[Rfam]
Nucleotides: 079
Base pairs, nucleotide, nucleotide: 030074031073032072033071034070035069036068037067
Number, partner (000 for none) and nucleotide at each position: 001000a002000u003000g004000a005000c006000u007000u008000g009000u010000g011000a012000u013000a014000a015000a016000a017000c018000u019000a020000u021000a022000u023000u024000a025000a026000u027000u028000u029000c030074a031073u032072c033071a034070u035069a036068a037067u038000c039000u040000a041000c042000a043000u044000u045000a046000u047000a048000a049000a050000g051000a052000g053000u054000a055000a056000u057000a058000a059000a060000a061000a062000a063000g064000g065000a066000g067037a068036u069035u070034a071033u072032g073031a074030u075000a076000u077000a078000a079000u
Shown here is a 79-nucleotide RNA sequence, a member of the family "dfrA-dnaX RNA". The sequence is in the family's curated seed alignment. It is annotated as a small RNA.